Description
F6 TB sRNA: a 56-nucleotide sequence from Actinophytocola algeriensis. By type it is a small RNA.
[Rfam]
RNA sequence: UCAGUGACCCCACGGUGCUGGCGGACCCCCGACCUGGCAGCACCGCGGGGUUUUCU
Numbered sequence: 001u002c003a004g005u006g007a008c009c010c011c012a013c014g015g016u017g018c019u020g021g022c023g024g025a026c027c028c029c030c031g032a033c034c035u036g037g038c039a040g041c042a043c044c045g046c047g048g049g050g051u052u053u054u055c056u
Stems, first nucleotide, its partner, number of pairs: 003054002007051005013045008022036001